[Rfam]
RNA sequence: GGUGGGGGGGGGCAAUCCCUCAGCCCAGAUUGCAAGAGGGUGCAGGCCAGGUCAAGGGACCCCACCAGUGCACG
Dot-bracket structure: ..((.(..((.(...(((((..(((..(.(((((......))))).)..)))..)))))...).))..).))..
Numbered sequence: 001g002g003u004g005g006g007g008g009g010g011g012g013c014a015a016u017c018c019c020u021c022a023g024c025c026c027a028g029a030u031u032g033c034a035a036g037a038g039g040g041u042g043c044a045g046g047c048c049a050g051g052u053c054a055a056g057g058g059a060c061c062c063c064a065c066c067a068g069u070g071c072a073c074g
Stems, first nucleotide, its partner, number of pairs: 003072002006069001009066002012063001016059005023052003028047001030045005